[Rfam]
Background
This 142-nucleotide sequence from Phaseolus vulgaris belongs to the Rfam family "Small nucleolar RNA snoR136". The base pairs follow the family's consensus structure, which was predicted with mfold. The family has 8 seed sequences and 452 matches in Rfam 15.1. Taxonomically the source falls in Phaseolus (Eukaryota, Euphyllophyta, Magnoliopsida, eudicotyledons).
RNA sequence: AAGGCCUCAAUUUUCUUUUAGAUCUUCGCUUGCACUUGUUCGAAGGUGUUUAGUGUUGUUUAAUUGAAGCCGAAAUGUGUGUUCCCCUCGCUAUCCGUUGUUGCAAUUUGAUGCUGCAAUUGGACGUCGGGGAACAAAAUCC
Dot-bracket structure: ..(((..(((((..............((((.(.((............))).))))......)))))..))).........(((((((.((...((((.....(((......)))......))))))..))))))).......